[Rfam]
RNA sequence: GCGGAGACGAAUGUUUCCGUUCACUCCUCACACCACACUCCGCCCGGACUGCGUUCGGGCGGUU
Dot-bracket structure: ((((((((....))))))))....................(((((((.......)))))))...
Numbered sequence: 001g002c003g004g005a006g007a008c009g010a011a012u013g014u015u016u017c018c019g020u021u022c023a024c025u026c027c028u029c030a031c032a033c034c035a036c037a038c039u040c041c042g043c044c045c046g047g048a049c050u051g052c053g054u055u056c057g058g059g060c061g062g063u064u
Stems, first nucleotide, its partner, number of pairs: 001020008041061007